Shown here is a 131-nucleotide RNA sequence from Erwinia billingiae, a member of the family "Molybdenum/Tungsten riboswitch aptamer (Moco RNA motif)". The family has 160 seed sequences and 1,248 matches in Rfam 15.1. The family's consensus secondary structure is taken from published work. The match comes from Rfam's covariance-model search (77 bits). The source organism's lineage runs through Bacteria, Pseudomonadati, Pseudomonadota, Enterobacterales and Erwinia. For this family Rfam cites "in molybdenum cofactor and tungsten cofactor metabolism" (Regulski et al., Mol Microbiol, 2008).
Nucleotides: 131
Base pairs, nucleotide, nucleotide: 004124012116013115014114015113016112019055020054021053024050025049026048027047028046029045033042034041035040057071058070059069060068061067074099075098076097077096078095079094080093081092084089100109101108
Number, partner (000 for none) and nucleotide at each position: 001000u002000u003000c004124g005000g006000u007000a008000a009000a010000u011000c012116a013115c014114a015113c016112u017000u018000a019055g020054c021053c022000c023000u024050g025049a026048c027047a028046c029045c030000u031000a032000a033042g034041u035040c036000u037000c038000c039000u040035g041034a042033u043000a044000c045029g046028g047027u048026g049025u050024c051000c052000u053021g054020g055019c056000c057071g058070c059069a060068a061067c062000c063000u064000c065000g066000c067061g068060u069059u070058g071057c072000c073000a074099g075098g076097g077096u078095g079094c080093a081092g082000a083000a084089a085000g086000a087000a088000a089084u090000g091000c092081c093080u094079g095078c096077a097076u098075c099074u100109c101108c102000c103000g104000a105000u106000u107000u108101g109100g110000a111000a112016g113015g114014u115013g116012u117000u118000c119000u120000g121000g122000u123000g124004u125000c126000a127000c128000a129000a130000u131000u